Record summary
LOOT RNA: a 120-nucleotide sequence. It is annotated as a small RNA. Rfam's curators put it in the seed alignment.

[Rfam]
RNA sequence: UGCCUAAACUCUAUUUAAUAGGGCAUGGCACAAAAACCCAGUAAGAGAUAUUAAGCUCGUCGUCAGAGCACUCUUACUGGGUCAUAACUCGAAAGAGUUAUGGGUAGCCGAAAGGCUAUC
Number, nucleotide and partner (000 for none) at each position: 001u030002g029003c028004c027005u000006a000007a000008a000009c023010u022011c021012u020013a019014u018015u000016u000017a000018a014019u013020a012021g011022g010023g009024c000025a000026u000027g004028g003029c002030a001031c000032a000033a000034a000035a000036a000037c081038c080039c079040a078041g077042u076043a075044a074045g073046a072047g071048a000049u000050a000051u000052u000053a000054a000055g069056c068057u067058c000059g000060u000061c000062g000063u000064c000065a000066g000067a057068g056069c055070a000071c047072u046073c045074u044075u043076a042077c041078u040079g039080g038081g037082u000083c102084a101085u100086a099087a098088c097089u096090c095091g000092a000093a000094a000095g090096a089097g088098u087099u086100a085101u084102g083103g120104g119105u118106a117107g116108c115109c000110g000111a000112a000113a000114g000115g108116c107117u106118a105119u104120c103